Shown here is a 75-nucleotide RNA from Otolemur garnettii, a member of the family "Small nucleolar RNA SNORD56". The match comes from Rfam's covariance-model search (41 bits). Its family is annotated with nucleolus and RNA processing in the Gene Ontology. The base pairs follow the family's consensus structure, which was predicted with PFOLD. The literature on the family includes a 2002 paper in Mol Cell Biol by Galardi et al., "Purified box C/D snoRNPs are able to reproduce site-specific 2'-O-methylation of target RNA in vitro". By type it is a C/D-box small nucleolar RNA.
RNA sequence: CAACAAUGAUGGCAAUAUCUUUUUGUCAGCAGCAAUUCACCGUGAGAGUGUUGUUGAUAUUUUAGGUCCCAGCGG
Numbered sequence: 001c002a003a004c005a006a007u008g009a010u011g012g013c014a015a016u017a018u019c020u021u022u023u024u025g026u027c028a029g030c031a032g033c034a035a036u037u038c039a040c041c042g043u044g045a046g047a048g049u050g051u052u053g054u055u056g057a058u059a060u061u062u063u064a065g066g067u068c069c070c071a072g073c074g075g
Base pairs, nucleotide, nucleotide: 004072008027009026010025011024